[Rfam]
RNA sequence: ACUGCUGCUGGGUCGCCUGUAGCAGU
Number, nucleotide and partner (000 for none) at each position: 001a026002c025003u024004g023005c022006u021007g020008c019009u000010g017011g016012g000013u000014c000015g000016c011017c010018u000019g008020u007021a006022g005023c004024a003025g002026u001
RNA: L25-Gammaproteobacteria ribosomal protein leader
Organism: Pantoea sp. PSNIH2